[Rfam]
RNA sequence: AAUCACACAGAAGGAGCUCUCUGGUCAGUGUUGGUGGGUUUUCAGACUGCAUUCUGCUAUGGCAACCUUUGGCGGUGUCGUGUUUACGAAGGUAUUGGAUCAUUAUGAUAUCGUCAGCUCACGAAACAGUCUUGACAUUUGCAAUGCCGUUGUUGCAGGAGGAUACUUGCGGUUGGUGUUGGAAGCAACGCCGGGACCCAUCUCGAGUUGGAGUCAAAGUUUCGUGCUUGUCUGGUGUUGUGAAAGACCCUUUCGCCAAGUUGAAUUUCACGACUCUGGCGGCACUGUUGAGGCUGGGUUGCAUUGUUGGAUCUAGGACAGGCCUUGUUGGAUGGGGUAGUCCUGGCUGUUCUCUCGCCUGAAAAUGGUGCGGAGGACAGCCCCCCGCGGUGAGG
Numbered sequence: 001a002a003u004c005a006c007a008c009a010g011a012a013g014g015a016g017c018u019c020u021c022u023g024g025u026c027a028g029u030g031u032u033g034g035u036g037g038g039u040u041u042u043c044a045g046a047c048u049g050c051a052u053u054c055u056g057c058u059a060u061g062g063c064a065a066c067c068u069u070u071g072g073c074g075g076u077g078u079c080g081u082g083u084u085u086a087c088g089a090a091g092g093u094a095u096u097g098g099a100u101c102a103u104u105a106u107g108a109u110a111u112c113g114u115c116a117g118c119u120c121a122c123g124a125a126a127c128a129g130u131c132u133u134g135a136c137a138u139u140u141g142c143a144a145u146g147c148c149g150u151u152g153u154u155g156c157a158g159g160a161g162g163a164u165a166c167u168u169g170c171g172g173u174u175g176g177u178g179u180u181g182g183a184a185g186c187a188a189c190g191c192c193g194g195g196a197c198c199c200a201u202c203u204c205g206a207g208u209u210g211g212a213g214u215c216a217a218a219g220u221u222u223c224g225u226g227c228u229u230g231u232c233u234g235g236u237g238u239u240g241u242g243a244a245a246g247a248c249c250c251u252u253u254c255g256c257c258a259a260g261u262u263g264a265a266u267u268u269c270a271c272g273a274c275u276c277u278g279g280c281g282g283c284a285c286u287g288u289u290g291a292g293g294c295u296g297g298g299u300u301g302c303a304u305u306g307u308u309g310g311a312u313c314u315a316g317g318a319c320a321g322g323c324c325u326u327g328u329u330g331g332a333u334g335g336g337g338u339a340g341u342c343c344u345g346g347c348u349g350u351u352c353u354c355u356c357g358c359c360u361g362a363a364a365a366u367g368g369u370g371c372g373g374a375g376g377a378c379a380g381c382c383c384c385c386c387g388c389g390g391u392g393a394g395g
Stems, first nucleotide, its partner, number of pairs: 195215003198211003217229004
Dot-bracket structure: ..................................................................................................................................................................................................((((((........))).))).((((.....))))......................................................................................................................................................................
RNA: Ascomycota telomerase RNA, nucleotides 1118 to 1512